[Rfam]
RNA sequence: GGCCUCCUGGUGCUUACCACAGGCUGUGUUUUUACACUGACUGUACAGAAAGAGGAGGCAGAGCAAACCUGCCCCAUAUACACCCUAGCCCAGGCCACUGUGCCUGGUGGUCUGUACUGUGAAUGCAGAGACAUGG
Numbered sequence: 001g002g003c004c005u006c007c008u009g010g011u012g013c014u015u016a017c018c019a020c021a022g023g024c025u026g027u028g029u030u031u032u033u034a035c036a037c038u039g040a041c042u043g044u045a046c047a048g049a050a051a052g053a054g055g056a057g058g059c060a061g062a063g064c065a066a067a068c069c070u071g072c073c074c075c076a077u078a079u080a081c082a083c084c085c086u087a088g089c090c091c092a093g094g095c096c097a098c099u100g101u102g103c104c105u106g107g108u109g110g111u112c113u114g115u116a117c118u119g120u121g122a123a124u125g126c127a128g129a130g131a132c133a134u135g136g
Stems, first nucleotide, its partner, number of pairs: 002059007020043003026037004072128001075125003086114003090107006

The family of this 136-nucleotide sequence from Nannospalax galili is "Small nucleolar RNA SNORA51". The match comes from Rfam's covariance-model search (135 bits). Rfam's curators write: ACA51 is a member of the H/ACA class of snoRNA that guide the sites of modification of uridines to pseudouridines. Pairs were carried over by alignment from the consensus structure, which was predicted with PFOLD. NCBI's taxonomy places the organism under Eukaryota, Eumetazoa, Theria, Spalacidae, Nannospalax. Rfam 15.1 lists 2,121 matches to the family in 210 species. Rfam links the family to the GO terms RNA processing and nucleolus.